[Rfam]
Background
The family of this 168-nucleotide sequence from Paenibacillus uliginis is "c-di-AMP riboswitch aptamer (ydaO/yuaA leader)". Taxonomically the source falls in Paenibacillus uliginis (Bacteria, Bacilli, Caryophanales, Paenibacillus). It scores 92 bits against the family's covariance model.
RNA sequence: GCUUUUUAUUCGCUGAGUCCUUGAAUGGAAAAGGAACGGGGGAACCAAACGAGAGACGUGUAUUUCUCUCAGGGGUGAAUCACAUCGGCAGGAUAACUGCCUAUGGGUAGGGCGACUCUCACGCCCGAAUCCGUCAGCUAACCUCGUAAGCGUAUCGAGAGAGGCAAC
Numbered sequence: 001g002c003u004u005u006u007u008a009u010u011c012g013c014u015g016a017g018u019c020c021u022u023g024a025a026u027g028g029a030a031a032a033g034g035a036a037c038g039g040g041g042g043a044a045c046c047a048a049a050c051g052a053g054a055g056a057c058g059u060g061u062a063u064u065u066c067u068c069u070c071a072g073g074g075g076u077g078a079a080u081c082a083c084a085u086c087g088g089c090a091g092g093a094u095a096a097c098u099g100c101c102u103a104u105g106g107g108u109a110g111g112g113c114g115a116c117u118c119u120c121a122c123g124c125c126c127g128a129a130u131c132c133g134u135c136a137g138c139u140a141a142c143c144u145c146g147u148a149a150g151c152g153u154a155u156c157g158a159g160a161g162a163g164g165c166a167a168c
Stems, first nucleotide, its partner, number of pairs: 011152004018035005036147006046072001073132003081107001083105002110126004